[Rfam]
RNA sequence: CUGGAAUGAUGUUACUUAGCCAAAUCAGAUAUUCAUGUGCUCCAUGUGGCAACAAACAUCACUUUUAAAGCUUGCUCCCGUUGUAAAAAUAAAGCAUGCCGACAAGCUUUGGUUGAUGUUUUGUCCCACAUGUUGAAGCGCAUUUCCUUGAUGAUAAACAAGGGGAUUGGUUGUUUCCUGACCAGA
Numbered sequence: 001c002u003g004g005a006a007u008g009a010u011g012u013u014a015c016u017u018a019g020c021c022a023a024a025u026c027a028g029a030u031a032u033u034c035a036u037g038u039g040c041u042c043c044a045u046g047u048g049g050c051a052a053c054a055a056a057c058a059u060c061a062c063u064u065u066u067a068a069a070g071c072u073u074g075c076u077c078c079c080g081u082u083g084u085a086a087a088a089a090u091a092a093a094g095c096a097u098g099c100c101g102a103c104a105a106g107c108u109u110u111g112g113u114u115g116a117u118g119u120u121u122u123g124u125c126c127c128a129c130a131u132g133u134u135g136a137a138g139c140g141c142a143u144u145u146c147c148u149u150g151a152u153g154a155u156a157a158a159c160a161a162g163g164g165g166a167u168u169g170g171u172u173g174u175u176u177c178c179u180g181a182c183c184a185g186a
Stems, first nucleotide, its partner, number of pairs: 001185004

About this RNA:
Rfam assigns this 186-nucleotide sequence from Cajanus cajan to the family "small nucleolar RNA snoR127". The family's RNA type in Rfam is C/D-box small nucleolar RNA. Lineage of the source: Eukaryota > Streptophytina > Pentapetalae > Papilionoideae > Cajanus. Pairs were carried over by alignment from the consensus structure, which was predicted with RNAalifold. It scores 75 bits against the family's covariance model.